Plastid-ycf2 5UTR RNA: a 75-nucleotide sequence from Ziziphus jujuba. Pairs were carried over by alignment from the consensus structure, which was predicted with LocARNA. For this family Rfam cites "Retrograde signaling in plants: A critical review focusing on the GUN pathway and beyond" (Richter et al., Plant Commun, 2023). About the family: Plastid ycf2 is a non-coding RNA (ncRNA) recognised in plastids. It was found in the prime untranslated region (5UTR) of ycf2 genes, it presents a tRNA-like motif which suggests it can be involved in mRNA maturation, particularly involved in defining the precise 5' end of the transcript. Rfam classes the family as a cis-regulatory element. It scores 74 bits against the family's covariance model.
[Rfam]
RNA sequence: AUGUAUCCAGUAGGAAUUGAACCUAUGAAUUUGCCAAUUAUGAUUUGGGCACUUUGACCAUACAGCCAUGGAUGC
Numbered sequence: 001a002u003g004u005a006u007c008c009a010g011u012a013g014g015a016a017u018u019g020a021a022c023c024u025a026u027g028a029a030u031u032u033g034c035c036a037a038u039u040a041u042g043a044u045u046u047g048g049g050c051a052c053u054u055u056g057a058c059c060a061u062a063c064a065g066c067c068a069u070g071g072a073u074g075c
Stems, first nucleotide, its partner, number of pairs: 003075006010026005040069003045065003049061001
Dot-bracket structure: ..((((((.(((((.......))))).............(((..(((.(...........).))).)))))))))